The record is a 64-nucleotide RNA sequence from Myotis myotis, which matches "mir-9242 microRNA precursor family" in Rfam. Rfam 15.1 lists 940 matches to the family in 18 species. A search with the family's covariance model found it, with a score of 68 bits.
[Rfam]
RNA sequence: GGCCUCCCUCUUUGAGGCGAUUGAUCACAGGGCUCUGUGAUUGAUCGCCUGGCAGAGGGUGGCC
Numbered sequence: 001g002g003c004c005u006c007c008c009u010c011u012u013u014g015a016g017g018c019g020a021u022u023g024a025u026c027a028c029a030g031g032g033c034u035c036u037g038u039g040a041u042u043g044a045u046c047g048c049c050u051g052g053c054a055g056a057g058g059g060u061g062g063c064c
Stems, first nucleotide, its partner, number of pairs: 001064004006059006013052001015050016